[Rfam]
The family of this 77-nucleotide RNA sequence from Crocodylus porosus is "Mammalian CPEB3 ribozyme".
A search with the family's covariance model found it, with a score of 48 bits.
The family's consensus secondary structure is taken from published work.
RNA sequence: GGUUGCAAGUUUGAGGCCAUAGCAGAAGUGCUUACAGCAUGGCCCCGUCAGAUUCCAACAGAUCUGUGAAUUCUGCU
Numbered sequence: 001g002g003u004u005g006c007a008a009g010u011u012u013g014a015g016g017c018c019a020u021a022g023c024a025g026a027a028g029u030g031c032u033u034a035c036a037g038c039a040u041g042g043c044c045c046c047g048u049c050a051g052a053u054u055c056c057a058a059c060a061g062a063u064c065u066g067u068g069a070a071u072u073c074u075g076c077u
Stems, first nucleotide, its partner, number of pairs: 013045001015044004021077007028040003049066006